[Rfam]
RNA sequence: CAAACGAAAAGGCAAACUUAUCGAAAGAUAGGGGCGCAAAGCCAAGGGUCUAAGGUGAAAAACUAUGACAGCCGGUUACCGAA
Numbered sequence: 001c002a003a004a005c006g007a008a009a010a011g012g013c014a015a016a017c018u019u020a021u022c023g024a025a026a027g028a029u030a031g032g033g034g035c036g037c038a039a040a041g042c043c044a045a046g047g048g049u050c051u052a053a054g055g056u057g058a059a060a061a062a063c064u065a066u067g068a069c070a071g072c073c074g075g076u077u078a079c080c081g082a083a
Stems, first nucleotide, its partner, number of pairs: 012037002017032006040077004046073002048069003055063002